[Rfam]
RNA sequence: CCUGGAAAUUGCCAUUCUCAUUGCGUGCAGUGCAAGUGUCUGCUCGCAGUUGCAACCUUCCUAUAUGAAUACUGGAGAUCUCUGUCUGGUUUUGCAUAGCAUUGGCAUAGUCCGAUCGUUCCUCUCCGUACAGU
Numbered sequence: 001c002c003u004g005g006a007a008a009u010u011g012c013c014a015u016u017c018u019c020a021u022u023g024c025g026u027g028c029a030g031u032g033c034a035a036g037u038g039u040c041u042g043c044u045c046g047c048a049g050u051u052g053c054a055a056c057c058u059u060c061c062u063a064u065a066u067g068a069a070u071a072c073u074g075g076a077g078a079u080c081u082c083u084g085u086c087u088g089g090u091u092u093u094g095c096a097u098a099g100c101a102u103u104g105g106c107a108u109a110g111u112c113c114g115a116u117c118g119u120u121c122c123u124c125u126c127c128g129u130a131c132a133g134u
Stems, first nucleotide, its partner, number of pairs: 004061003009055004022048004027043002032039002074127005082118001084116003088112004093107002
RNA: Small Cajal body specific RNA 3